Description:
The record is a 194-nucleotide sequence from Erwinia sp. OLSSP12, which matches "Lysine riboswitch aptamer" in Rfam.
RNA sequence: CAAGCCAGAAGAGGCGCGUCGCCCAGGUAGGAUGUUGGAGGUUCCGUCACCUGCGAAAACAUCUGAGGGGGAUGCGACGCCGAGACAGGCAGCAUGCGGAAGGGUGCCUGUCGGCUGCAGGCGCUGAAUCCCCUGGGUUGUCACCCGGUGUAUUCCAGACGGAAUACACCACAAGGUGGGGCGCUUCUGGGAGA
Numbered sequence: 001c002a003a004g005c006c007a008g009a010a011g012a013g014g015c016g017c018g019u020c021g022c023c024c025a026g027g028u029a030g031g032a033u034g035u036u037g038g039a040g041g042u043u044c045c046g047u048c049a050c051c052u053g054c055g056a057a058a059a060c061a062u063c064u065g066a067g068g069g070g071g072a073u074g075c076g077a078c079g080c081c082g083a084g085a086c087a088g089g090c091a092g093c094a095u096g097c098g099g100a101a102g103g104g105u106g107c108c109u110g111u112c113g114g115c116u117g118c119a120g121g122c123g124c125u126g127a128a129u130c131c132c133c134u135g136g137g138u139u140g141u142c143a144c145c146c147g148g149u150g151u152a153u154u155c156c157a158g159a160c161g162g163a164a165u166a167c168a169c170c171a172c173a174a175g176g177u178g179g180g181g182c183g184c185u186u187c188u189g190g191g192a193g194a
Stems, first nucleotide, its partner, number of pairs: 006189006016080006024071001030064007084112008093103001095101001113139004118135004123130001141179005